[Rfam]
RNA: mir-8/mir-141/mir-200 microRNA precursor family
Organism: Labeo rohita
RNA sequence: AUUUGUGUCUUACCAGGCAAGUUUAGAUGUUGAUACCGUGUCUAAUACUGCCUGGUAAUGCCAUCAAU
Number, nucleotide and partner (000 for none) at each position: 001a000002u067003u066004u000005g064006u063007g062008u000009c060010u058011u057012a056013c055014c054015a053016g052017g051018c050019a049020a000021g000022u000023u045024u044025a043026g042027a041028u000029g000030u000031u000032g000033a000034u000035a000036c000037c000038g000039u000040g000041u027042c026043u025044a024045a023046u000047a000048c000049u019050g018051c017052c016053u015054g014055g013056u012057a011058a010059u000060g009061c000062c007063a006064u005065c000066a003067a002068u000